The record is a 74-nucleotide RNA sequence from Myotis brandtii, which matches "mir-9193 microRNA precursor family" in Rfam.
RNA sequence: ACUGGGAGGGGGGGGUCCCUCAACCCGGAUUGCGAGAAGGCACAGGCCAGGCUGAGGGACCCCAAGGGUGCACA
Dot-bracket structure: ..((.(.....(((((((((((.((.((.(((.(......).))).)).)).))))))))))).....).))..
Pairs were carried over by alignment from the consensus structure, which was predicted with RNAalifold.
The organism belongs to Myotis, within Eukaryota.